[Rfam]
RNA sequence: AAGGUCUCCCGUAACUGGCGUCUCGAGGUGGAUCACCACCGGGGAGCGGGGCCAAAAGACCUUACAGCCGUACGCCUGGGCCCCCUUU
Numbered sequence: 001a002a003g004g005u006c007u008c009c010c011g012u013a014a015c016u017g018g019c020g021u022c023u024c025g026a027g028g029u030g031g032a033u034c035a036c037c038a039c040c041g042g043g044g045a046g047c048g049g050g051g052c053c054a055a056a057a058g059a060c061c062u063u064a065c066a067g068c069c070g071u072a073c074g075c076c077u078g079g080g081c082c083c084c085c086u087u088u
Base pairs, nucleotide, nucleotide: 007051008050009049010048011047012046015043016042017076018075019074020073021072028039029038030037031036067081068080069079

This 88-nucleotide sequence from Syntrophotalea carbinolica belongs to the Rfam family "ZMP/ZTP riboswitch aptamer (pfl RNA motif)". The source organism's lineage runs through Bacteria, Thermodesulfobacteriota, Syntrophotaleaceae, Syntrophotalea and Syntrophotalea carbinolica. Its family is annotated with one-carbon metabolic process and regulation of purine nucleotide biosynthetic process in the Gene Ontology.